Nucleotides: 067
Stems, first nucleotide, its partner, number of pairs: 001067004
Number, partner (000 for none) and nucleotide at each position: 001067a002066a003065c004064a005000u006000g007000u008000g009000a010000u011000g012000a013000u014000a015000u016000u017000a018000u019000g020000g021000u022000c023000c024000g025000u026000g027000u028000u029000u030000c031000u032000g033000a034000u035000u036000c037000a038000u039000a040000g041000u042000g043000a044000u045000c046000g047000g048000a049000u050000a051000a052000c053000a054000a055000c056000c057000a058000u059000g060000c061000u062000g063000a064004u065003g066002u067001u
Shown here is a 67-nucleotide RNA from Dreissena polymorpha, a member of the family "Small nucleolar RNA SNORD18". Its Rfam clan is "SNORD18 clan". NCBI's taxonomy places the organism under Eukaryota, Metazoa, Lophotrochozoa, Imparidentia, Dreissena. The family has 16 seed sequences and 2,622 matches in Rfam 15.1.